[Rfam]
RNA sequence: GCCAUGGGGAUGGCGAGCUCCCCACGAGGCGCCAGCCGAAGUUCGCGUUCCAGCACAAGAUCCUGUCAAGGGAGGAACGCAUAUG
Dot-bracket structure: ....((((((........))))))....................((((((........................)))))).....
Shown here is an 85-nucleotide RNA from Paracoccus methylarcula, a member of the family "chrB-a RNA".
It is annotated as a cis-regulatory element.
The family's consensus secondary structure is taken from published work.